[Rfam]
RNA sequence: ACAGUACAAACUGAGCAGGCGAUGAACGGUUUCGUUCAUGGGGCUGGGCCUUAGGGCAGCAGGAUUCAGUACCUGCGGGACAGUG
Numbered sequence: 001a002c003a004g005u006a007c008a009a010a011c012u013g014a015g016c017a018g019g020c021g022a023u024g025a026a027c028g029g030u031u032u033c034g035u036u037c038a039u040g041g042g043g044c045u046g047g048g049c050c051u052u053a054g055g056g057c058a059g060c061a062g063g064a065u066u067c068a069g070u071a072c073c074u075g076c077g078g079g080a081c082a083g084u085g
Stems, first nucleotide, its partner, number of pairs: 010084004016079001018045003022039006048057003059076005
Description: Shown here is an 85-nucleotide sequence from Sporobacter termitidis, a member of the family "NiCo (Nickel/Cobalt) riboswitch aptamer". It scores 71 bits against the family's covariance model.